A member of the RNA family "mir-135 microRNA precursor family" from Anolis carolinensis, 87 nucleotides long. The source organism's lineage runs through Eukaryota, Gnathostomata, Episquamata, Iguania and Anolis. Rfam links the family to the GO terms RISC complex and gene silencing by miRNA. For this family Rfam cites "Identification of tissue-specific microRNAs from mouse" (Lagos-Quintana et al., Curr Biol, 2002).
RNA sequence: GCCCCAUUGUCUUCUAUGGCUUUUUAUUCCUAUGUGAUUAUAUCACUAAUUUCAUAUAGGGAUUGAAGCCAUGUAAUACGCUGGGGA
Numbered sequence: 001g002c003c004c005c006a007u008u009g010u011c012u013u014c015u016a017u018g019g020c021u022u023u024u025u026a027u028u029c030c031u032a033u034g035u036g037a038u039u040a041u042a043u044c045a046c047u048a049a050u051u052u053c054a055u056a057u058a059g060g061g062a063u064u065g066a067a068g069c070c071a072u073g074u075a076a077u078a079c080g081c082u083g084g085g086g087a
Stems, first nucleotide, its partner, number of pairs: 002086005008080003012076002015073009026063012